The record is a 110-nucleotide sequence from Rhodanobacter fulvus, which matches "SAH (S-adenosyl-L-homocysteine) riboswitch aptamer" in Rfam. A reference for the family is Wang et al. (2008), "Riboswitches that sense S-adenosylhomocysteine and activate genes involved in coenzyme recycling", Mol Cell. NCBI's taxonomy places the organism under Bacteria, Pseudomonadati, Pseudomonadota, Gammaproteobacteria, Rhodanobacter fulvus.

RNA sequence: CCCGCCGAGGGGCGCUGCGACCGUUUGUGAGCGCGAAUGCGGAUGCCUCCGCGUCUCACGGAAAACGGCCAGGCUCGGCGCGGCACGUUCCACAACGGCGCCCGGUUGUU
Numbered sequence: 001c002c003c004g005c006c007g008a009g010g011g012g013c014g015c016u017g018c019g020a021c022c023g024u025u026u027g028u029g030a031g032c033g034c035g036a037a038u039g040c041g042g043a044u045g046c047c048u049c050c051g052c053g054u055c056u057c058a059c060g061g062a063a064a065a066c067g068g069c070c071a072g073g074c075u076c077g078g079c080g081c082g083g084c085a086c087g088u089u090c091c092a093c094a095a096c097g098g099c100g101c102c103c104g105g106u107u108g109u110u
Stems, first nucleotide, its partner, number of pairs: 003080006021068006